[Rfam]
RNA sequence: AUGGAGACAUGGCGUAAAGCCAGAAUGACAGACGUGAACUCAUUAGACUGUAACUUGAAUUGAUUUACAUCUCAUUUU
Numbered sequence: 001a002u003g004g005a006g007a008c009a010u011g012g013c014g015u016a017a018a019g020c021c022a023g024a025a026u027g028a029c030a031g032a033c034g035u036g037a038a039c040u041c042a043u044u045a046g047a048c049u050g051u052a053a054c055u056u057g058a059a060u061u062g063a064u065u066u067a068c069a070u071c072u073c074a075u076u077u078u
Stems, first nucleotide, its partner, number of pairs: 004073004010022004026067003
A member of the RNA family "ctgf/hcs24 CAESAR" from Jaculus jaculus, 78 nucleotides long.
Taxonomically the source falls in Jaculus (Eukaryota, Deuterostomia, Vertebrata, Teleostomi).
The 3' UTR of human connective tissue growth factor/hypertrophic chondrocyte specific 24 (ctgf/hcs24) mRNA has been shown to repress ctgf gene expression. Reference identified a minimal RNA element, predicted to form a stable secondary structure, which acts as a post-transcriptional cis-acting element of structure-anchored repression (CAESAR), probably through direct interactions with as yet unknown nuclear factors.
The match comes from Rfam's covariance-model search (87 bits).
Pairs were carried over by alignment from the consensus structure, which is taken from published work.